[Rfam]
RNA sequence: ACACUUAGUGUAAAACUAUAUUAAUUUCAUCAUAAUCUACAUUAUAAAAAGUAAUAAAAAAGGAGCUUAUGAUAUAAU
Numbered sequence: 001a002c003a004c005u006u007a008g009u010g011u012a013a014a015a016c017u018a019u020a021u022u023a024a025u026u027u028c029a030u031c032a033u034a035a036u037c038u039a040c041a042u043u044a045u046a047a048a049a050a051g052u053a054a055u056a057a058a059a060a061a062g063g064a065g066c067u068u069a070u071g072a073u074a075u076a077a078u
Stems, first nucleotide, its partner, number of pairs: 029073007
Background: The record is a 78-nucleotide RNA, which matches "dfrA-dnaX RNA" in Rfam. By type it is a small RNA.